[Rfam]
RNA sequence: CCGGCAACAAUAUCCUGAUGCCGUCUGAGUGUGCGGGAUAGCUCCAGCAUCAGUGAUUUUGUUGGUGG
Number, nucleotide and partner (000 for none) at each position: 001c000002c000003g000004g000005c000006a063007a062008c061009a060010a059011u000012a057013u056014c055015c053016u052017g051018a050019u049020g048021c047022c000023g045024u000025c000026u000027g000028a000029g000030u000031g000032u000033g000034c000035g000036g000037g000038a000039u000040a000041g000042c000043u000044c000045c023046a000047g021048c020049a019050u018051c017052a016053g015054u000055g014056a013057u012058u000059u010060u009061g008062u007063u006064g000065g000066u000067g000068g000
RNA: mir-338 microRNA precursor family